[Rfam]
RNA sequence: UGCUGGUCCCAGUGCAGUGGUGUUUGCAACUAACUGCUCACAACCAGUUACAGAUUCCUUCGUUCCUUCUCUGCUCCCACUGCUUCACUUGACUAGCCUUUA
Numbered sequence: 001u002g003c004u005g006g007u008c009c010c011a012g013u014g015c016a017g018u019g020g021u022g023u024u025u026g027c028a029a030c031u032a033a034c035u036g037c038u039c040a041c042a043a044c045c046a047g048u049u050a051c052a053g054a055u056u057c058c059u060u061c062g063u064u065c066c067u068u069c070u071c072u073g074c075u076c077c078c079a080c081u082g083c084u085u086c087a088c089u090u091g092a093c094u095a096g097c098c099u100u101u102a
Stems, first nucleotide, its partner, number of pairs: 002097007011089001014086001016081005022076001028064003032060002
A member of the RNA family "Y RNA" from Propithecus coquereli, 102 nucleotides long.
Lineage of the source: Eukaryota > Craniata > Dipnotetrapodomorpha > Amniota > Propithecus.
The match comes from Rfam's covariance-model search (65 bits).
The family's consensus secondary structure is taken from published work.
Y RNAs are components of the Ro ribonucleoprotein particle (Ro RNP), in association with Ro60 and La proteins. The Y RNAs and Ro60 and La proteins are well conserved, but the function of the Ro RNP is not known.